[Rfam]
RNA sequence: CCGUGGGCUGAUGCCCACGGCUAAAUGCUUCCGCCGCUUCGCGGCU
Number, nucleotide and partner (000 for none) at each position: 001c020002c019003g018004u017005g016006g015007g014008c013009u000010g000011a000012u000013g008014c007015c006016c005017a004018c003019g002020g001021c000022u000023a000024a000025a000026u000027g000028c000029u000030u000031c000032c000033g045034c044035c043036g042037c041038u000039u000040c000041g037042c036043g035044g034045c033046u000
A member of the RNA family "Acido-Lenti-1 RNA" from Rosistilla oblonga, 46 nucleotides long. The family's consensus secondary structure is taken from published work.